[Rfam]
RNA sequence: ACAAAGGCUCUUUUCAGAGCCACCAAAUUAAAUGAGUUGAACGCUC
Numbered sequence: 001a002c003a004a005a006g007g008c009u010c011u012u013u014u015c016a017g018a019g020c021c022a023c024c025a026a027a028u029u030a031a032a033u034g035a036g037u038u039g040a041a042c043g044c045u046c
Base pairs, nucleotide, nucleotide: 006021007020008019009018010017011016